[Rfam]
RNA sequence: GGCACUGUAUGGUAUCUGCAGCCAGCCGUUUCUCCAAGCUGGACUGUUCAUUACACAGUGCAAGAGCAACUCGGCAUCUGGCAUCGUUGGUCUCCAUGCUUCCUAGUGCCUUGGAGUCCUGGUAUUUGUGCUGAAACAAGU
Numbered sequence: 001g002g003c004a005c006u007g008u009a010u011g012g013u014a015u016c017u018g019c020a021g022c023c024a025g026c027c028g029u030u031u032c033u034c035c036a037a038g039c040u041g042g043a044c045u046g047u048u049c050a051u052u053a054c055a056c057a058g059u060g061c062a063a064g065a066g067c068a069a070c071u072c073g074g075c076a077u078c079u080g081g082c083a084u085c086g087u088u089g090g091u092c093u094c095c096a097u098g099c100u101u102c103c104u105a106g107u108g109c110c111u112u113g114g115a116g117u118c119c120u121g122g123u124a125u126u127u128g129u130g131c132u133g134a135a136a137c138a139a140g141u
Stems, first nucleotide, its partner, number of pairs: 002061006018047004023042001024040003065129001068126002071122004080110005

Background:
Small nucleolar RNA SNORA8: a 141-nucleotide sequence from Megalops atlanticus. The family's consensus secondary structure was predicted with RNAfold. Gene Ontology terms of the family: RNA processing and nucleolus. Rfam describes the family as follows. ACA8 is a member of the H/ACA class of snoRNA that guide the sites of modification of uridines to pseudouridines. Taxonomically the source falls in Megalops (Eukaryota, Bilateria, Neopterygii, Elopocephalai). It is annotated as an H/ACA-box small nucleolar RNA.